[Rfam]
RNA: t44 RNA
Organism: Neptunicella marina
RNA sequence: CUAUCCCAUUAUUAAUAACACACAUACAUCGACACGGCGUUCGGGGUGUUCAUCAUACUUUAAUAUGAUGGAUCGAAAAUCGGGAUGUAUGGAGGCCUAAC
Numbered sequence: 001c002u003a004u005c006c007c008a009u010u011a012u013u014a015a016u017a018a019c020a021c022a023c024a025u026a027c028a029u030c031g032a033c034a035c036g037g038c039g040u041u042c043g044g045g046g047u048g049u050u051c052a053u054c055a056u057a058c059u060u061u062a063a064u065a066u067g068a069u070g071g072a073u074c075g076a077a078a079a080u081c082g083g084g085a086u087g088u089a090u091g092g093a094g095g096c097c098u099a100a101c
Stems, first nucleotide, its partner, number of pairs: 023091008035082003040077004048073008